Description
Shown here is a 74-nucleotide RNA sequence, a member of the family "PyrD leader". Gene Ontology term of the family: regulation of gene expression. The family's consensus secondary structure is taken from published work. On this family, see Sorensen, Nucleic Acids Res 1994: "Conformational heterogeneity in the Salmonella typhimurium pyrC and pyrD leader mRNAs produced in vivo".
RNA sequence: AUUCCAAUCAUCCCCUGGAUCGUGAAUAAUAACGCCCCGGUCUGCACACCGGGAAUCCAGGAGAGUUCAUGUAC
Numbered sequence: 001a002u003u004c005c006a007a008u009c010a011u012c013c014c015c016u017g018g019a020u021c022g023u024g025a026a027u028a029a030u031a032a033c034g035c036c037c038c039g040g041u042c043u044g045c046a047c048a049c050c051g052g053g054a055a056u057c058c059a060g061g062a063g064a065g066u067u068c069a070u071g072u073a074c
Base pairs, nucleotide, nucleotide: 036053037052038051039050040049041048
Dot-bracket structure: ...................................((((((......)))))).....................